This 139-nucleotide sequence from Ploceus nigricollis belongs to the Rfam family "Small nucleolar RNA SNORA8". The family's consensus secondary structure was predicted with RNAfold. ACA8 is a member of the H/ACA class of snoRNA that guide the sites of modification of uridines to pseudouridines. Gene Ontology terms of the family: nucleolus and RNA processing.
RNA sequence: UGUGGUUGAAGGUCUGUGCACCCAGCAGACUUCUCCUGGUGGGAUGUUCAAAAAGCAGUACUACACCAGUGCAGAAUUUGUUAUCCUUGGUUUUCCAUCUGCUGUGUCUGUUAAACCUGGUAUUUCUGCUGGAACAGUC
Numbered sequence: 001u002g003u004g005g006u007u008g009a010a011g012g013u014c015u016g017u018g019c020a021c022c023c024a025g026c027a028g029a030c031u032u033c034u035c036c037u038g039g040u041g042g043g044a045u046g047u048u049c050a051a052a053a054a055g056c057a058g059u060a061c062u063a064c065a066c067c068a069g070u071g072c073a074g075a076a077u078u079u080g081u082u083a084u085c086c087u088u089g090g091u092u093u094u095c096c097a098u099c100u101g102c103u104g105u106g107u108c109u110g111u112u113a114a115a116c117c118u119g120g121u122a123u124u125u126c127u128g129c130u131g132g133a134a135c136a137g138u139c
Stems, first nucleotide, its partner, number of pairs: 002061003006057001014055002017052001018047003022043002024040001026038003064128002068124003072119003080108001082106003